[Rfam]
RNA sequence: GUUUUUUACCCAGUAUUCACAAGGUACUAGGCGUUCUAUGACCGAUUUCGAUUGUGUCAUAAAAUCAUAAAUUUUUGGAUCAGCAUCGUCGGGGAUUUCCGGUGAUGCAAA
Numbered sequence: 001g002u003u004u005u006u007u008a009c010c011c012a013g014u015a016u017u018c019a020c021a022a023g024g025u026a027c028u029a030g031g032c033g034u035u036c037u038a039u040g041a042c043c044g045a046u047u048u049c050g051a052u053u054g055u056g057u058c059a060u061a062a063a064a065u066c067a068u069a070a071a072u073u074u075u076u077g078g079a080u081c082a083g084c085a086u087c088g089u090c091g092g093g094g095a096u097u098u099c100c101g102g103u104g105a106u107g108c109a110a111a
Base pairs, nucleotide, nucleotide: 008034009031010030013027014026018024039059040058041057042056043054044053045052046051087107088106089105090104091103093100094099